[Rfam]
RNA sequence: UCCUCGCUCAAAGAAUCGCAUUCAAAGCUCACACACAGGAAUAUCAUCCCCGAUAUUCCUCCCAAGCUUUGGGAGAAAGUCCCCGGACACCCUGCCCUGAUCCUUCGGGAUCCGCGGUAGGCAAUGCGGAAACGCGCCGCCAUAGAAGCAAUUCGACAGCGGCUGACUGCCCUACUCCCUCCCGGUGCCCUGCCUAUAUCCGACGCCCUCUGCGGUGGACACAAUGGCGGUAUAGCGGGGUGUCGGAGAGGGGUUUUGAUUGGGUUGCCUUUCGUCGUGUUUGGAUAGUCAUGCGAUUGCCCUGGUUUUUUCUAACCGGGUAACUCAAUGGGGCUCAUUCUUGAGGCGAGG
Numbered sequence: 001u002c003c004u005c006g007c008u009c010a011a012a013g014a015a016u017c018g019c020a021u022u023c024a025a026a027g028c029u030c031a032c033a034c035a036c037a038g039g040a041a042u043a044u045c046a047u048c049c050c051c052g053a054u055a056u057u058c059c060u061c062c063c064a065a066g067c068u069u070u071g072g073g074a075g076a077a078a079g080u081c082c083c084c085g086g087a088c089a090c091c092c093u094g095c096c097c098u099g100a101u102c103c104u105u106c107g108g109g110a111u112c113c114g115c116g117g118u119a120g121g122c123a124a125u126g127c128g129g130a131a132a133c134g135c136g137c138c139g140c141c142a143u144a145g146a147a148g149c150a151a152u153u154c155g156a157c158a159g160c161g162g163c164u165g166a167c168u169g170c171c172c173u174a175c176u177c178c179c180u181c182c183c184g185g186u187g188c189c190c191u192g193c194c195u196a197u198a199u200c201c202g203a204c205g206c207c208c209u210c211u212g213c214g215g216u217g218g219a220c221a222c223a224a225u226g227g228c229g230g231u232a233u234a235g236c237g238g239g240g241u242g243u244c245g246g247a248g249a250g251g252g253g254u255u256u257u258g259a260u261u262g263g264g265u266u267g268c269c270u271u272u273c274g275u276c277g278u279g280u281u282u283g284g285a286u287a288g289u290c291a292u293g294c295g296a297u298u299g300c301c302c303u304g305g306u307u308u309u310u311u312c313u314a315a316c317c318g319g320g321u322a323a324c325u326c327a328a329u330g331g332g333g334c335u336c337a338u339u340c341u342u343g344a345g346g347c348g349a350g351g
Base pairs, nucleotide, nucleotide: 002351003350004349005348006347007346008344009343010342011341014298015297016296017295018294019293022073023071024070025069026068027067028066037060038059039058040057041056042055043054044053045052078335079334081333082332083331084330096109097108098107099106192269194267198260199259200258202256203255207253208252209251210250219243220242221241222240229236300320301319302318304316
A member of the RNA family "RNase MRP" from Aspergillus clavatus, 351 nucleotides long. RNase MRP is an enzymatically active ribonucleoprotein with two distinct roles in eukaryotes. In mitochondria it plays a direct role in the initiation of mitochondrial DNA replication. In the nucleus it is involved in precursor rRNA processing, where it cleaves the internal transcribed spacer 1 between 18S and 5.8S rRNAs. Taxonomically the source falls in Aspergillus clavatus (Eukaryota, Dikarya, Aspergillaceae, Aspergillus subgen. Fumigati). It is annotated as a ribozyme. A reference for the family is Schmitt et al. (1993), "Secondary structure of RNase MRP RNA as predicted by phylogenetic comparison", FASEB J.